[Rfam]
RNA sequence: GAUGGAGGAUCUUCUGCUAAAGCCGCCCACAUCCUGUGGACAACGCGGAAGUAACCACAUCGUUUGAA
Numbered sequence: 001g002a003u004g005g006a007g008g009a010u011c012u013u014c015u016g017c018u019a020a021a022g023c024c025g026c027c028c029a030c031a032u033c034c035u036g037u038g039g040a041c042a043a044c045g046c047g048g049a050a051g052u053a054a055c056c057a058c059a060u061c062g063u064u065u066g067a068a
Stems, first nucleotide, its partner, number of pairs: 011051007027039004056066002
A member of the RNA family "Bacillaceae-1 RNA" from Lentibacillus halodurans, 68 nucleotides long. The source organism's lineage runs through Bacteria, Bacillota, Bacilli, Caryophanales and Lentibacillus. The base pairs follow the family's consensus structure, which is taken from published work. It scores 42 bits against the family's covariance model.